[Rfam]
RNA: SAM riboswitch aptamer (S box leader)
Organism: Keratinibaculum paraultunense
RNA sequence: UUCUUAUCCAGAGUUAGGGGAGAGAGUUAGCUCGUUGAUCCUACACCAACCUGUUGUUUUUAACAAGGUGGUUCUGCUAACAUCGAUAAGUU
Numbered sequence: 001u002u003c004u005u006a007u008c009c010a011g012a013g014u015u016a017g018g019g020g021a022g023a024g025a026g027u028u029a030g031c032u033c034g035u036u037g038a039u040c041c042u043a044c045a046c047c048a049a050c051c052u053g054u055u056g057u058u059u060u061u062a063a064c065a066a067g068g069u070g071g072u073u074c075u076g077c078u079a080a081c082a083u084c085g086a087u088a089a090g091u092u
Stems, first nucleotide, its partner, number of pairs: 003090006013044001015043004022033003027080004045072004050068002052065004076084001
Dot-bracket structure: ..((((((....(.((((...(((..[[[[)))......)))))((((.((((((......)))).))))))...(]]]]...)))))))..